[Rfam]
RNA sequence: CACCGCCCGUCGCUACCAUCGGUGGACGGCCUAGCGAGGACUUUCGGACCGGAACGGGGCGGCUCACGCGUCCUCUCCGGGAAGAGGCCCCAACUCGGUCGCCCGGAGAUAGUAAAAGUCGUAACAAGGUUUCCGUAGUGAACCUGCGGAAGGAUCAUUA
Numbered sequence: 001c002a003c004c005g006c007c008c009g010u011c012g013c014u015a016c017c018a019u020c021g022g023u024g025g026a027c028g029g030c031c032u033a034g035c036g037a038g039g040a041c042u043u044u045c046g047g048a049c050c051g052g053a054a055c056g057g058g059g060c061g062g063c064u065c066a067c068g069c070g071u072c073c074u075c076u077c078c079g080g081g082a083a084g085a086g087g088c089c090c091c092a093a094c095u096c097g098g099u100c101g102c103c104c105g106g107a108g109a110u111a112g113u114a115a116a117a118g119u120c121g122u123a124a125c126a127a128g129g130u131u132u133c134c135g136u137a138g139u140g141a142a143c144c145u146g147c148g149g150a151a152g153g154a155u156c157a158u159u160a
Base pairs, nucleotide, nucleotide: 003128005125008121009120011118014114015113016112018110019109020108023105024104025103027101028100029099030098031097033095034094038090039089041087042086043085045084049080050079051078052077053076056073057072059069060068061067130152131151132150133149134148135147136146137145138144